[Rfam]
RNA sequence: UGCCUUUUGAAAUUAGUCCUGUGAGGCUGAUAAGAGGAGCUUGCCUUUUAUAGGUGUACUAUAUGGUUAAUUAUAGCUUUCUUAUGCCUUCGCAUGAGAAAGCUUUUUUU
Number, nucleotide and partner (000 for none) at each position: 001u000002g000003c037004c036005u035006u034007u033008u032009g031010a000011a000012a000013u030014u029015a028016g027017u026018c025019c000020u000021g000022u000023g000024a000025g018026g017027c016028u015029g014030a013031u009032a008033a007034g006035a005036g004037g003038a000039g071040c000041u069042u000043g067044c066045c065046u000047u000048u063049u000050a062051u061052a060053g059054g000055u000056g000057u000058a000059c053060u052061a051062u050063a048064u000065g045066g044067u043068u000069a041070a000071u039072u000073a000074u000075a104076g103077c102078u101079u100080u099081c098082u097083u096084a095085u094086g093087c092088c000089u000090u000091c000092g087093c086094a085095u084096g083097a082098g081099a080100a079101a078102g077103c076104u075105u000106u000107u000108u000109u000110u000
The family of this 110-nucleotide RNA sequence from Schwartzia succinivorans is "PyrR binding site". A reference for the family is Bonner et al. (2001), "Molecular recognition of pyr mRNA by the Bacillus subtilis attenuation regulatory protein PyrR", Nucleic Acids Res. This family represents the PyrR binding site and terminator structure. This RNA structure is found upstream of a variety of genes involved in pyrimidine biosynthesis and transport. A search with the family's covariance model found it, with a score of 56 bits. By type it is a cis-regulatory element. Pairs were carried over by alignment from the consensus structure, which is taken from published work.